[Rfam]
This 149-nucleotide RNA from Desulfocicer vacuolatum belongs to the Rfam family "FMN riboswitch aptamer (RFN element)".
RNA sequence: UUGAAUUCUCAGGGCGGGGUGAAAUUCCCCACCGGCGGUUAUUUUGAUGAAAUCAAAUAAGCCCGCGAGCGCCUGCGGUUAACGCAGGGUCAGCAGAUCUGGUGAAAUUCCAGAGCCGACGGUUAAAGUCCGGAUGGGAGAGAAUAAAA
Numbered sequence: 001u002u003g004a005a006u007u008c009u010c011a012g013g014g015c016g017g018g019g020u021g022a023a024a025u026u027c028c029c030c031a032c033c034g035g036c037g038g039u040u041a042u043u044u045u046g047a048u049g050a051a052a053u054c055a056a057a058u059a060a061g062c063c064c065g066c067g068a069g070c071g072c073c074u075g076c077g078g079u080u081a082a083c084g085c086a087g088g089g090u091c092a093g094c095a096g097a098u099c100u101g102g103u104g105a106a107a108u109u110c111c112a113g114a115g116c117c118g119a120c121g122g123u124u125a126a127a128g129u130c131c132g133g134a135u136g137g138g139a140g141a142g143a144a145u146a147a148a149a
Stems, first nucleotide, its partner, number of pairs: 005145006017029003031129002033118002035066004061116002069094002098114005120132003
The source organism's lineage runs through Bacteria, Thermodesulfobacteriota, Desulfobacteria, Desulfobacteraceae and Desulfocicer vacuolatum. Pairs were carried over by alignment from the consensus structure, which is taken from published work. The RFN element is a highly conserved domain that is found frequently in the 5'-untranslated regions of prokaryotic mRNAs that encode for flavin mononucleotide (FMN) biosynthesis and transport proteins. The match comes from Rfam's covariance-model search (122 bits).